[Rfam]
Nucleotides: 074
Stems, first nucleotide, its partner, number of pairs: 003074006010026002013023002039068003043065008
Number, partner (000 for none) and nucleotide at each position: 001000a002000u003074g004073c005072a006071u007070u008069c009000a010026a011025c012000a013023g014022g015000a016000a017000u018000u019000g020000a021000a022014c023013c024000c025011g026010u027000g028000a029000c030000u031000u032000c033000c034000c035000a036000a037000u038000u039068a040067u041066g042000a043065g044064u045063u046062g047061g048060g049059u050058g051000c052000u053000u054000u055000u056000a057000c058050u059049g060048u061047u062046u063045a064044g065043c066041c067040a068039u069008g070007g071006a072005u073004g074003c
Rfam assigns this 74-nucleotide sequence from Taxus chinensis to the family "Plastid-ycf2 5UTR RNA". Rfam's curators write: Plastid ycf2 is a non-coding RNA (ncRNA) recognised in plastids. It was found in the prime untranslated region (5UTR) of ycf2 genes, it presents a tRNA-like motif which suggests it can be involved in mRNA maturation, particularly involved in defining the precise 5' end of the transcript. Rfam classes the family as a cis-regulatory element. A reference for the family is Richter et al. (2023), "Retrograde signaling in plants: A critical review focusing on the GUN pathway and beyond", Plant Commun.